The record is a 77-nucleotide sequence, which matches "Xanthine riboswitch aptamer (NMT1 RNA)" in Rfam. The sequence is in the family's curated seed alignment. On this family, see Yu and Breaker, RNA 2020: "A bacterial riboswitch class senses xanthine and uric acid to regulate genes associated with purine oxidation".
RNA sequence: GGCGUGAGUAGAAGCGGUCAGCCGGGCCGCCUCCGAUAACGUGAGGUAACUGCGCUCGGUCGGAAAUUGCUCACCUU
Numbered sequence: 001g002g003c004g005u006g007a008g009u010a011g012a013a014g015c016g017g018u019c020a021g022c023c024g025g026g027c028c029g030c031c032u033c034c035g036a037u038a039a040c041g042u043g044a045g046g047u048a049a050c051u052g053c054g055c056u057c058g059g060u061c062g063g064a065a066a067u068u069g070c071u072c073a074c075c076u077u
Base pairs, nucleotide, nucleotide: 005073006072007071008070009069010068015062018064019063021060022059023058024057025056026055027054